Rfam assigns this 112-nucleotide sequence from Ottowia flava to the family "TPP riboswitch aptamer (THI element)". The match comes from Rfam's covariance-model search (60 bits). Pairs were carried over by alignment from the consensus structure, which is taken from published work. Rfam links the family to the GO term thiamine pyrophosphate binding.

[Rfam]
RNA sequence: GCGCACACUCCGGGGUGCCCGCGUCAGGCGAGCUGAGAUGGUCGAGACAUCGACUGAACCCGUCAACUUGAUCCGGUUAGUACCGGCGUAAGGAAGAGCAGCAGCCCAAGGG
Numbered sequence: 001g002c003g004c005a006c007a008c009u010c011c012g013g014g015g016u017g018c019c020c021g022c023g024u025c026a027g028g029c030g031a032g033c034u035g036a037g038a039u040g041g042u043c044g045a046g047a048c049a050u051c052g053a054c055u056g057a058a059c060c061c062g063u064c065a066a067c068u069u070g071a072u073c074c075g076g077u078u079a080g081u082a083c084c085g086g087c088g089u090a091a092g093g094a095a096g097a098g099c100a101g102c103a104g105c106c107c108a109a110g111g112g
Stems, first nucleotide, its partner, number of pairs: 008098003011062004016056001017033002020030002040055005067092004073086004